[Rfam]
RNA: Plant signal recognition particle RNA
Organism: Zingiber officinale
RNA sequence: GCCGAGCUGAGUUGUGACAGCUUAUGACCCAAGCGGGGGCAAUGAGUGGUUUGGAUGAUGUCGCUGGGGUUCGUGGCGUGGACUCUCUCAGUGUACGAUAUCUAGCCUGCCCGUUCCAAGUUGAUUGUUAGCCGGUUUAAUCAGGCGUAGGCGUGAUGUUGCUGGUUCAUAAUGGGUACACUGGAUGAGGCUGGUUUCACAGAGCAAUCACAUCUACCCACCUUCAACGGUGGAAGGAUAACAGGCUGGUGCAUGGGAUCCACAAUACCUCGGACGCCCCUUCUUCUAUCAAACAAACCAAUUU
Numbered sequence: 001g002c003c004g005a006g007c008u009g010a011g012u013u014g015u016g017a018c019a020g021c022u023u024a025u026g027a028c029c030c031a032a033g034c035g036g037g038g039g040c041a042a043u044g045a046g047u048g049g050u051u052u053g054g055a056u057g058a059u060g061u062c063g064c065u066g067g068g069g070u071u072c073g074u075g076g077c078g079u080g081g082a083c084u085c086u087c088u089c090a091g092u093g094u095a096c097g098a099u100a101u102c103u104a105g106c107c108u109g110c111c112c113g114u115u116c117c118a119a120g121u122u123g124a125u126u127g128u129u130a131g132c133c134g135g136u137u138u139a140a141u142c143a144g145g146c147g148u149a150g151g152c153g154u155g156a157u158g159u160u161g162c163u164g165g166u167u168c169a170u171a172a173u174g175g176g177u178a179c180a181c182u183g184g185a186u187g188a189g190g191c192u193g194g195u196u197u198c199a200c201a202g203a204g205c206a207a208u209c210a211c212a213u214c215u216a217c218c219c220a221c222c223u224u225c226a227a228c229g230g231u232g233g234a235a236g237g238a239u240a241a242c243a244g245g246c247u248g249g250u251g252c253a254u255g256g257g258a259u260c261c262a263c264a265a266u267a268c269c270u271c272g273g274a275c276g277c278c279c280c281u282u283c284u285u286c287u288a289u290c291a292a293a294c295a296a297a298c299c300a301a302u303u304u
Base pairs, nucleotide, nucleotide: 001040002039003038004023005022006021007020008019009018028037029036030035044303045302047300048299049298050297051296052295053294056291057290059288060287063283066280067279069275070274071273072272073271075269076268078266080261081260082259086257087256089255091254092253093252096251097250102249103248104247105246106245107244108243109242111237112236114235115234116233117232118231120228121227122226123225124224127221128220130167131166132165133164134163135162136161140157141156142155143154145152146151169173174219175218176217177216178215184209185208186207191202192201193200